[Rfam]
RNA: 6C RNA
RNA sequence: AUCGCAGCCCCCAACCCCCCUGGGGCGCUGCACGAGGCGGCAUCCCAUUCCCCCCAUGGGAUGCCGCCCUUC
Number, nucleotide and partner (000 for none) at each position: 001a000002u035003c034004g031005c030006a029007g028008c027009c025010c024011c023012c022013a000014a000015c000016c000017c000018c000019c000020c000021u000022g012023g011024g010025g009026c000027g008028c007029u006030g005031c004032a000033c000034g003035a002036g068037g067038c066039g065040g064041c063042a062043u061044c060045c059046c058047a057048u056049u000050c000051c000052c000053c000054c000055c000056a048057u047058g046059g045060g044061a043062u042063g041064c040065c039066g038067c037068c036069c000070u000071u000072c000